t44 RNA: a 94-nucleotide RNA sequence from Shewanella intestini.
[Rfam]
RNA sequence: UUAACUUAAAUACUAAAUCACACACGUAUCGACACAUUUUUCGGGGUGCUUCCUUAUUUGGAAGUCGAAACAAUGGGAUGCGUGGAGGUCUAAC
Dot-bracket structure: ......................((((((((....((((.((((....(((((........)))))))))..)))).))))))))..........
About this RNA
The family's RNA type in Rfam is small RNA.